[Rfam]
RpsF leader: an 81-nucleotide RNA from Vibrio ishigakensis. It is annotated as a cis-regulatory leader. Taxonomically the source falls in Vibrio (Bacteria, Pseudomonadati, Pseudomonadota, Vibrionaceae). Conserved and widely distributed to many bacterial species RNA structure. It precedes operon containing rpsF, which encodes ribosomal protein S6. A search with the family's covariance model found it, with a score of 38 bits.

RNA sequence: GUCAAUUUUCUUUAGUUCCUUGCUUCCUCUGGAUGACCGGGCCGAAUGUGGAAGCUAAUAAUCCGUAAGGAGCAACCAAUG
Numbered sequence: 001g002u003c004a005a006u007u008u009u010c011u012u013u014a015g016u017u018c019c020u021u022g023c024u025u026c027c028u029c030u031g032g033a034u035g036a037c038c039g040g041g042c043c044g045a046a047u048g049u050g051g052a053a054g055c056u057a058a059u060a061a062u063c064c065g066u067a068a069g070g071a072g073c074a075a076c077c078a079a080u081g
Base pairs, nucleotide, nucleotide: 015073016072017071018070019069020068021067022055023054024053025052026051027050030044031043032042
Dot-bracket structure: ..............(((((((((((((..(((.........))).....))))))...........)))))))........